[Rfam]
Archaeal large subunit ribosomal RNA: a 513-nucleotide part of an RNA from Chrysodeixis includens.
RNA sequence: CCGUCCGAAGUUUCCCUCAGGAUAGCUGGCGUCGGUGUGAUCAGUCUCAUCCGGUAAAGCGAAUGAUUAGAGGCUUUGGAGACGAAACGUCUUCAACCUACUCUCAAACUUUAAAUGGGUGAGUUCUCCGGCUUACUGACUGAAGCCGGGGGUCUGAUGACGGUGCCAAGUGGGCCAAUUUUGGUAAGCAGAACUGGCGCUGUGGGAUGAACCAAACGUAGUGUUAAGGCGCCCAAAAAACGCUGAACGUUACAAAAAAGACGUAAGUCAUUGGAGACAACAGGACGGUGGCCAUGGAGGUCGGCAUCCGCUAAGGAGUGUGGAAAAACUCACCUGAUAAGGAAUGACUUGCACUGAAAAUGGAUGGCGCUAAGCGUUUUGCCGAUACACUACCGUUAACGGCCAGAGCGACGACUGUGUGACGUCAUUAAGCCUUAACGAGUAGGACGUGCGCGGCGGAGAGCGCGGAAGGGUCUGGGCGUGAGCCUGCCUGGAGCCUCCGUCGGUGCAGAU
Dot-bracket structure: ((((((....(.(((....))).)..(.(.............(..(((((((....(((.....((....(((....((((((.....))))))..)))....))...)).)....))))))).)...........).).....((((..............................................))))....(((......)))...(((((((...(((......(((((((...............((..((((((((((........((((.(((..(((.........)))..)))(...)(...((......)).).))))......)))))))))).))..................))))))))))...)))))))((((((...................................))))))....))))).)(.((((((((.((......((((..((((....))))))))...))))))))))..).....
Rfam links the family to the GO terms structural constituent of ribosome and ribosome.